[Rfam]
RNA sequence: UGAGCUAUGAUAUGUCUGGUAUUCUUGGGUUCAAGCGGGAACCGGACAUAUUAGACAUAUCGAAGGUCGG
Numbered sequence: 001u002g003a004g005c006u007a008u009g010a011u012a013u014g015u016c017u018g019g020u021a022u023u024c025u026u027g028g029g030u031u032c033a034a035g036c037g038g039g040a041a042c043c044g045g046a047c048a049u050a051u052u053a054g055a056c057a058u059a060u061c062g063a064a065g066g067u068c069g070g
Base pairs, nucleotide, nucleotide: 008062009061010060011059012058013057014056015055016054017053018052019051020050021049022048028043029042030041031040

A member of the RNA family "mir-50 microRNA precursor family" from Caenorhabditis auriculariae, 70 nucleotides long.
Rfam links the family to the GO terms miRNA-mediated post-transcriptional gene silencing and RISC complex.
Rfam 15.1 lists 65 matches to the family in 64 species.
The organism belongs to Caenorhabditis, within Eukaryota.
The family's consensus secondary structure was predicted with RNAalifold.
For this family Rfam cites "Large-scale sequencing reveals 21U-RNAs and additional microRNAs and endogenous siRNAs in C. elegans" (Ruby et al., Cell, 2006).
The family is grouped with related families in Rfam's "mir-50 clan".